[Rfam]
RNA sequence: CCUGCCACUGUACCUGUUCUGCCCGUGGCUGGUACAUUCCAGUGGUGAGCUGAGAGGAAAGCCCCAGGCAGGAAGCAGUCUUCUCCUGCUUGUGGGGAGGCCUGUGCCGAAAACCUGGGUACAGAU
Numbered sequence: 001c002c003u004g005c006c007a008c009u010g011u012a013c014c015u016g017u018u019c020u021g022c023c024c025g026u027g028g029c030u031g032g033u034a035c036a037u038u039c040c041a042g043u044g045g046u047g048a049g050c051u052g053a054g055a056g057g058a059a060a061g062c063c064c065c066a067g068g069c070a071g072g073a074a075g076c077a078g079u080c081u082u083c084u085c086c087u088g089c090u091u092g093u094g095g096g097g098a099g100g101c102c103u104g105u106g107c108c109g110a111a112a113a114c115c116u117g118g119g120u121a122c123a124g125a126u
Stems, first nucleotide, its partner, number of pairs: 005045006018032002021029001022027001063119004067114001071108002076104003080100002084096003
This 126-nucleotide sequence from Picathartes gymnocephalus belongs to the Rfam family "Small nucleolar RNA SNORA65". The family is grouped with related families in Rfam's "SNORA65 clan". Gene Ontology terms of the family: nucleolus and RNA processing. The organism belongs to Picathartes, within Eukaryota. Rfam 15.1 lists 1,089 matches to the family in 619 species. Rfam's curators write: U65 belongs to the H/ACA class of snoRNAs which are thought to guide the sites of modification of uridines to pseudouridines. It is annotated as an H/ACA-box small nucleolar RNA.